[Rfam]
RNA sequence: CAUAUCCUUCGGGGCAGGGUGAAAUUCCCUACCGGCGGUGAUGGACGGAGAGUGCACGCUGUGCAGAUGUCUCUUCGAACUCAGUCCGUGACCCGUCUCUACUUCGUAGAGCCGGUGGACCUGGUGCAAAUCCGGGACCGACAGUAUAGUCUGGAUGGGAGAAGGAGAAG
Numbered sequence: 001c002a003u004a005u006c007c008u009u010c011g012g013g014g015c016a017g018g019g020u021g022a023a024a025u026u027c028c029c030u031a032c033c034g035g036c037g038g039u040g041a042u043g044g045a046c047g048g049a050g051a052g053u054g055c056a057c058g059c060u061g062u063g064c065a066g067a068u069g070u071c072u073c074u075u076c077g078a079a080c081u082c083a084g085u086c087c088g089u090g091a092c093c094c095g096u097c098u099c100u101a102c103u104u105c106g107u108a109g110a111g112c113c114g115g116u117g118g119a120c121c122u123g124g125u126g127c128a129a130a131u132c133c134g135g136g137a138c139c140g141a142c143a144g145u146a147u148a149g150u151c152u153g154g155a156u157g158g159g160a161g162a163a164g165g166a167g168a169a170g
Stems, first nucleotide, its partner, number of pairs: 003168001005166006017029003031150002033140002035089004093115002120136005142153003

FMN riboswitch aptamer (RFN element): a 170-nucleotide sequence from Paenibacillus algicola. The base pairs follow the family's consensus structure, which is taken from published work. NCBI's taxonomy places the organism under Bacteria, Bacillota, Caryophanales, Paenibacillaceae, Paenibacillus.